[Rfam]
RNA sequence: CAAAAGGGCUUCUGCCGUGUGGCACAGCGUGUUUCACGCUGCAGAAUCGUAAUCAAGAGAUUUUGGAAGCAUAAUUUUUGGAACAGUGGGCUAUCCUGUUGCCUAUGCAAUGAUGCCCAC
Numbered sequence: 001c002a003a004a005a006g007g008g009c010u011u012c013u014g015c016c017g018u019g020u021g022g023c024a025c026a027g028c029g030u031g032u033u034u035c036a037c038g039c040u041g042c043a044g045a046a047u048c049g050u051a052a053u054c055a056a057g058a059g060a061u062u063u064u065g066g067a068a069g070c071a072u073a074a075u076u077u078u079u080g081g082a083a084c085a086g087u088g089g090g091c092u093a094u095c096c097u098g099u100u101g102c103c104u105a106u107g108c109a110a111u112g113a114u115g116c117c118c119a120c
Stems, first nucleotide, its partner, number of pairs: 008070005013024004025041007042065007088118004093114003097110001099109001
A member of the RNA family "U11 spliceosomal RNA" from Geodia barretti, 120 nucleotides long.
The family's RNA type in Rfam is spliceosomal small nuclear RNA.
The base pairs follow the family's consensus structure, which is taken from published work.